MIR5269 microRNA precursor family: an 80-nucleotide RNA from Medicago truncatula.
The family has 2 seed sequences and 389 matches in Rfam 15.1.
Its family is annotated with RISC complex and miRNA-mediated post-transcriptional gene silencing in the Gene Ontology.
The match comes from Rfam's covariance-model search (72 bits).
The organism belongs to Medicago, within Eukaryota.

RNA sequence: UUGGAUGAGAUCAAUGUAGAACCUGCACUUUAAAAAAGAAACCCACGUUAAGUGGUGGAACAUAUAUUGAUUUCAUCGGA
Numbered sequence: 001u002u003g004g005a006u007g008a009g010a011u012c013a014a015u016g017u018a019g020a021a022c023c024u025g026c027a028c029u030u031u032a033a034a035a036a037a038g039a040a041a042c043c044c045a046c047g048u049u050a051a052g053u054g055g056u057g058g059a060a061c062a063u064a065u066a067u068u069g070a071u072u073u074c075a076u077c078g079g080a
Base pairs, nucleotide, nucleotide: 001080002079004077005076006075007074008073009072010071011070012069013068014067015066016065017064018063023058024057025056026054027053028052029051030050032048